[Rfam]
The record is a 67-nucleotide sequence from Python bivittatus, which matches "Selenocysteine insertion sequence 1" in Rfam.
The organism belongs to Python, within Eukaryota.
RNA sequence: AUCGCUUGAUGACGGGAGCUGCUGAAAUGUUGCUGGACACCUGGCAGUUCCCUGAAGACUGCGCGUU
Numbered sequence: 001a002u003c004g005c006u007u008g009a010u011g012a013c014g015g016g017a018g019c020u021g022c023u024g025a026a027a028u029g030u031u032g033c034u035g036g037a038c039a040c041c042u043g044g045c046a047g048u049u050c051c052c053u054g055a056a057g058a059c060u061g062c063g064c065g066u067u
Stems, first nucleotide, its partner, number of pairs: 001067001003065003014052010029038003
Dot-bracket structure: (.(((........((((((((((.....(((....)))....))))))))))..........))).)
The match comes from Rfam's covariance-model search (40 bits). Rfam's curators write: The incorporation of selenocysteine into a protein sequence is directed by an in-frame UGA codon (usually a stop codon) within the coding region of the mRNA. Selenoprotein mRNAs contain a conserved secondary structure in the 3' UTR that is required for the distinction of UGA stop from UGA selenocysteine. The selenocysteine insertion sequence (SECIS) is around 60 nt in length and adopts a hairpin structure which is sufficiently well-defined and conserved to act as a computational screen for selenoprotein genes.